[Rfam]
RNA: Nuclear RNase P
Organism: Daphnia magna
RNA sequence: GCUUACGGCAAUCCCGUAUUUGGGAGUCACGCACGGAGCACCUCGUUGCUCGUUUUAAACUCUCGGGAAGGUCUGAGAUGAAGCUUUGCUCUUGUUGUUGAGCUGUACGCCCUAGCCGGGUGGCCUUUUCGUAAAGGUGCAGGGGAAUAGAAAGAAUAUCGACUGGAACGUCAUUCAUGUCCCAUGAUGUUCGUUAAAAUGGACUAGGCGUCGGCGUCCACGUUCGAUUGGAACUGCUUCUGUGGCUGGCUUUUUGAGUAUAAUGUGCGGGUUGCGGUAUGGCUUGUCUAACUGCAAAACUCAAUUCAGACUAAUCUGUCGAAAGC
Numbered sequence: 001g002c003u004u005a006c007g008g009c010a011a012u013c014c015c016g017u018a019u020u021u022g023g024g025a026g027u028c029a030c031g032c033a034c035g036g037a038g039c040a041c042c043u044c045g046u047u048g049c050u051c052g053u054u055u056u057a058a059a060c061u062c063u064c065g066g067g068a069a070g071g072u073c074u075g076a077g078a079u080g081a082a083g084c085u086u087u088g089c090u091c092u093u094g095u096u097g098u099u100g101a102g103c104u105g106u107a108c109g110c111c112c113u114a115g116c117c118g119g120g121u122g123g124c125c126u127u128u129u130c131g132u133a134a135a136g137g138u139g140c141a142g143g144g145g146a147a148u149a150g151a152a153a154g155a156a157u158a159u160c161g162a163c164u165g166g167a168a169c170g171u172c173a174u175u176c177a178u179g180u181c182c183c184a185u186g187a188u189g190u191u192c193g194u195u196a197a198a199a200u201g202g203a204c205u206a207g208g209c210g211u212c213g214g215c216g217u218c219c220a221c222g223u224u225c226g227a228u229u230g231g232a233a234c235u236g237c238u239u240c241u242g243u244g245g246c247u248g249g250c251u252u253u254u255u256g257a258g259u260a261u262a263a264u265g266u267g268c269g270g271g272u273u274g275c276g277g278u279a280u281g282g283c284u285u286g287u288c289u290a291a292c293u294g295c296a297a298a299a300c301u302c303a304a305u306u307c308a309g310a311c312u313a314a315u316c317u318g319u320c321g322a323a324a325g326c
Base pairs, nucleotide, nucleotide: 001326002325003324004323008319009318010317013271014270015269016268017267018266019265022064023063024062025061026060036051037050038049039048040047073309074308075307076306077305082247083246084245085244108122109121110120111119112118123138124137125136126135127134128133139243140242141241142240143239144238145237159227160226161225272297273296274295275294276293277292278291